The family of this 68-nucleotide RNA from Ancylostoma duodenale is "mir-124 microRNA precursor family". For this family Rfam cites "The microRNAs of Caenorhabditis elegans" (Lim et al., Genes Dev, 2003). The organism belongs to Ancylostoma, within Eukaryota. Rfam links the family to the GO terms miRNA-mediated post-transcriptional gene silencing and RISC complex.

Nucleotides: 068
Base pairs, nucleotide, nucleotide: 003066004065005064006063009060010059012057013056014055015054016053019051020050021049023046024045025044026043027042028041029040
Number, partner (000 for none) and nucleotide at each position: 001000a002000u003066c004065g005064c006063u007000u008000c009060g010059c011000u012057u013056u014055c015054a016053u017000c018000g019051g020050u021049g022000a023046c024045u025044u026043u027042a028041g029040u030000g031000u032000g033000a034000a035000u036000u037000g038000c039000a040029a041028c042027u043026a044025a045024g046023g047000c048000a049021c050020g051019c052000g053016g054015u055014g056013a057012a058000u059010g060009c061000c062000a063006a064005g065004c066003g067000a068000a